[Rfam]
RNA sequence: GGCGUGCUGCGUGGUGCGUUAGGCCAUUCGAUCCCUGGGGCCAAUAUCGAAACUCUAGGGAGCUGUCCCUGCCGGAGCCGUGGUUCCGGUAUAUGGCGCCCACCUGCUUAGGCAGGCCACAGAGGAUGAUGCAAGCCGACGGCCGACGUGGCACCCGC
Numbered sequence: 001g002g003c004g005u006g007c008u009g010c011g012u013g014g015u016g017c018g019u020u021a022g023g024c025c026a027u028u029c030g031a032u033c034c035c036u037g038g039g040g041c042c043a044a045u046a047u048c049g050a051a052a053c054u055c056u057a058g059g060g061a062g063c064u065g066u067c068c069c070u071g072c073c074g075g076a077g078c079c080g081u082g083g084u085u086c087c088g089g090u091a092u093a094u095g096g097c098g099c100c101c102a103c104c105u106g107c108u109u110a111g112g113c114a115g116g117c118c119a120c121a122g123a124g125g126a127u128g129a130u131g132c133a134a135g136c137c138g139a140c141g142g143c144c145g146a147c148g149u150g151g152c153a154c155c156c157g158c
Stems, first nucleotide, its partner, number of pairs: 002156001004154008012145004017141003032126003035122001037120001039118004058101003062097005071090008
Record summary
This 158-nucleotide RNA sequence from Limibacillus halophilus belongs to the Rfam family "6S / SsrS RNA". Rfam classes the family as a non-coding RNA gene. The base pairs follow the family's consensus structure, which is taken from published work. A search with the family's covariance model found it, with a score of 68 bits.